[Rfam]
RNA sequence: CGCCAGUAUUUUACGAUUAAGAAGCAAUUGCCUCUUGUGCAGAUCGUUUAUUAUUUG
Numbered sequence: 001c002g003c004c005a006g007u008a009u010u011u012u013a014c015g016a017u018u019a020a021g022a023a024g025c026a027a028u029u030g031c032c033u034c035u036u037g038u039g040c041a042g043a044u045c046g047u048u049u050a051u052u053a054u055u056u057g
Stems, first nucleotide, its partner, number of pairs: 018037005024031002
Dot-bracket structure: .................(((((.((....)).)))))....................

Shown here is a 57-nucleotide sequence from Dendrotrophe varians, a member of the family "Plastid-rps18 3UTR RNA". Plastid rps18 is a non-coding RNA (ncRNA) present in plastids. It was identified as a short stem-loop motif in the 3 prime untranslate region (3UTR) of rps18 gene. The family's consensus secondary structure was predicted with LocARNA. NCBI's taxonomy places the organism under Eukaryota, Embryophyta, Tracheophyta, eudicotyledons, Dendrotrophe. For this family Rfam cites "Retrograde signaling in plants: A critical review focusing on the GUN pathway and beyond" (Richter et al., Plant Commun, 2023).